This 97-nucleotide RNA from Salana multivorans belongs to the Rfam family "Bacterial small signal recognition particle RNA". The signal recognition particle (SRP) is a universally conserved ribonucleoprotein involved in the co-translational targeting of proteins to membranes. A reference for the family is Rosenblad et al. (2003), "SRPDB: Signal Recognition Particle Database", Nucleic Acids Res. The family's consensus secondary structure is taken from published work. It scores 64 bits against the family's covariance model. The organism belongs to Salana, within Bacteria.
RNA sequence: ACCGACCCCCCGUGCGGCGUCAUCUCGCUGAACUCCCCCAGGACCGGAAGGUAGCAAGGGCAGGCGAGCUCUGAUGGGUGUGCGGGGGGUCCUCGUC
Numbered sequence: 001a002c003c004g005a006c007c008c009c010c011c012g013u014g015c016g017g018c019g020u021c022a023u024c025u026c027g028c029u030g031a032a033c034u035c036c037c038c039c040a041g042g043a044c045c046g047g048a049a050g051g052u053a054g055c056a057a058g059g060g061c062a063g064g065c066g067a068g069c070u071c072u073g074a075u076g077g078g079u080g081u082g083c084g085g086g087g088g089g090u091c092c093u094c095g096u097c
Stems, first nucleotide, its partner, number of pairs: 004091011015078001018076005024068006035060003043052003